The family of this 67-nucleotide RNA sequence from Pontibacillus yanchengensis is "Bacillaceae-1 RNA". It scores 49 bits against the family's covariance model. It is annotated as a small RNA. NCBI's taxonomy places the organism under Bacteria, Bacillati, Bacilli, Caryophanales, Pontibacillus yanchengensis.
[Rfam]
RNA sequence: AGAAGGGGAGGUUCGACUAAAACCGUCACAUCGUUUGACAACGUCGAACGACCCUACGUCAUGUAGG
Numbered sequence: 001a002g003a004a005g006g007g008g009a010g011g012u013u014c015g016a017c018u019a020a021a022a023c024c025g026u027c028a029c030a031u032c033g034u035u036u037g038a039c040a041a042c043g044u045c046g047a048a049c050g051a052c053c054c055u056a057c058g059u060c061a062u063g064u065a066g067g
Stems, first nucleotide, its partner, number of pairs: 011049007025039004053067005